[Rfam]
RNA sequence: AUACUUACAUGGCUGGGGAGAUACCAUGAUCACGAAGGUGGUUUUCCAGGGCGAGGCUUAUCCACUGCACUCUGAAUGUGCCGACCCCUGCGAUUUCCCCAGAUCAACUGCAUAAUUUGUGGUAGUAGGGGACUGUGUUCACGCUUUCCCCAG
Dot-bracket structure: ...........((.(.(((((.(((((..........))))))))))((((.(.(((.(((.(..........).))).)))..)))))..(((.......).))..).))................(((((..(((....)))..)))))..
RNA: U1 spliceosomal RNA